Rfam assigns this 97-nucleotide RNA from Colletotrichum trifolii to the family "tRNA".
RNA sequence: ACCCGAUUAGCUCAAUUGGUCAGAGCGUUGGACUUUUACGAACACUGCUUCGCAAUUGGAUAUCCAAAGGCUACGAGUUCGACCCUCGUAUCGGGUG
Numbered sequence: 001a002c003c004c005g006a007u008u009a010g011c012u013c014a015a016u017u018g019g020u021c022a023g024a025g026c027g028u029u030g031g032a033c034u035u036u037u038a039c040g041a042a043c044a045c046u047g048c049u050u051c052g053c054a055a056u057u058g059g060a061u062a063u064c065c066a067a068a069g070g071c072u073a074c075g076a077g078u079u080c081g082a083c084c085c086u087c088g089u090a091u092c093g094g095g096u097g
Base pairs, nucleotide, nucleotide: 001096002095003094004093005092006091007090010026011025012024013023028067029066030065031064032063073089074088075087076086077085
Dot-bracket structure: (((((((..((((.........)))).(((((..............................))))).....(((((.......)))))))))))).

Rfam links the family to the GO term triplet codon-amino acid adaptor activity.
Rfam classes the family as a transfer RNA.